[Rfam]
RNA sequence: AUUGAAACGGGGAAGGUUAUGGCGCUUGUGUUUGAUUCGUUCAUAAGCGUAUAGCUUUUCCCCUUUUAAU
Numbered sequence: 001a002u003u004g005a006a007a008c009g010g011g012g013a014a015g016g017u018u019a020u021g022g023c024g025c026u027u028g029u030g031u032u033u034g035a036u037u038c039g040u041u042c043a044u045a046a047g048c049g050u051a052u053a054g055c056u057u058u059u060c061c062c063c064u065u066u067u068a069a070u
Stems, first nucleotide, its partner, number of pairs: 003068005009062003013058002017054005025047006
A member of the RNA family "mir-965 microRNA precursor family" from Rhodnius prolixus, 70 nucleotides long. For this family Rfam cites "The regulation of silkworm fibroin L chain production by miRNA-965 and miRNA-1926 in insect cells" (Huang et al., Bioorg Khim, 2012). The family has 16 seed sequences and 224 matches in Rfam 15.1. Pairs were carried over by alignment from the consensus structure, which was predicted with RNAalifold.